Shown here is a 75-nucleotide sequence from Streptomyces sp. PT12, a member of the family "ASpks TB sRNA". Taxonomically the source falls in Streptomyces (Bacteria, Bacillati, Actinomycetota, Streptomycetaceae). The base pairs follow the family's consensus structure, which is taken from published work. The family's RNA type in Rfam is antisense RNA.

RNA sequence: CUUCACCGAGCCCAGCCACAGCGGGUUCUCGGGGUCGCGGCCCUGGCCGUAGGUGGCGAGGAGGGCUUGGGCCUC
Numbered sequence: 001c002u003u004c005a006c007c008g009a010g011c012c013c014a015g016c017c018a019c020a021g022c023g024g025g026u027u028c029u030c031g032g033g034g035u036c037g038c039g040g041c042c043c044u045g046g047c048c049g050u051a052g053g054u055g056g057c058g059a060g061g062a063g064g065g066c067u068u069g070g071g072c073c074u075c
Stems, first nucleotide, its partner, number of pairs: 014026001016024002035070002038065001043060002047056003
Dot-bracket structure: .............(.((.....)).)........((.(....((..(((....)))..))....)...)).....